[Rfam]
RNA: Small nucleolar RNA Z13/snr52
Organism: Plicatura crispa
RNA sequence: GCGUCCUAUUUGAUGAAGUAUUUUACGGAUGUAAAAAAGUCUAACGACUUGCAUGUCCGAGAGCGCAAAACCCCAUGUGGAUUCUUUCCGUUGCCUUCCUUCUGAUUUCUCCU
Numbered sequence: 001g002c003g004u005c006c007u008a009u010u011u012g013a014u015g016a017a018g019u020a021u022u023u024u025a026c027g028g029a030u031g032u033a034a035a036a037a038a039g040u041c042u043a044a045c046g047a048c049u050u051g052c053a054u055g056u057c058c059g060a061g062a063g064c065g066c067a068a069a070a071c072c073c074c075a076u077g078u079g080g081a082u083u084c085u086u087u088c089c090g091u092u093g094c095c096u097u098c099c100u101u102c103u104g105a106u107u108u109c110u111c112c113u
Base pairs, nucleotide, nucleotide: 003112026090027089028088029087